[Rfam]
RNA sequence: UGGUGCCCAACGUGUGGGGCCGGAUACUGAGGCAGCAGUGAGGGAGGCGACGUGAGAAGGAACGCGUUCGACAAACCUUGAAAUUCUUCUCAGGAACCUGCCUCAGCCAAAACCAAAAGUAAGUGGAAACGUCUGAUCAUGGGGCAAGAAUUAAGCCAGCAUGAGCUUUAUGUUAAACAGUCAAAGGAGGCUUUAAAGACAUGGGGGGUAAAGGUUAAAACUAUGGAUUUGUUUCAUUUCUUUGAUUUUGUAAAGGAAAUUUGUCCCU
Numbered sequence: 001u002g003g004u005g006c007c008c009a010a011c012g013u014g015u016g017g018g019g020c021c022g023g024a025u026a027c028u029g030a031g032g033c034a035g036c037a038g039u040g041a042g043g044g045a046g047g048c049g050a051c052g053u054g055a056g057a058a059g060g061a062a063c064g065c066g067u068u069c070g071a072c073a074a075a076c077c078u079u080g081a082a083a084u085u086c087u088u089c090u091c092a093g094g095a096a097c098c099u100g101c102c103u104c105a106g107c108c109a110a111a112a113c114c115a116a117a118a119g120u121a122a123g124u125g126g127a128a129a130c131g132u133c134u135g136a137u138c139a140u141g142g143g144g145c146a147a148g149a150a151u152u153a154a155g156c157c158a159g160c161a162u163g164a165g166c167u168u169u170a171u172g173u174u175a176a177a178c179a180g181u182c183a184a185a186g187g188a189g190g191c192u193u194u195a196a197a198g199a200c201a202u203g204g205g206g207g208g209u210a211a212a213g214g215u216u217a218a219a220a221c222u223a224u225g226g227a228u229u230u231g232u233u234u235c236a237u238u239u240c241u242u243u244g245a246u247u248u249u250g251u252a253a254a255g256g257a258a259a260u261u262u263g264u265c266c267c268u
Base pairs, nucleotide, nucleotide: 006032007031012027013026014025038048039047077119078117079116084112085110089106090105092103093102130144132143133142134141135140152195153194154193155191156190157189202244203243204242205241206240207239208238212230213229214228215227216226253268255266256265257264
RNA: Mason-Pfizer monkey virus packaging signal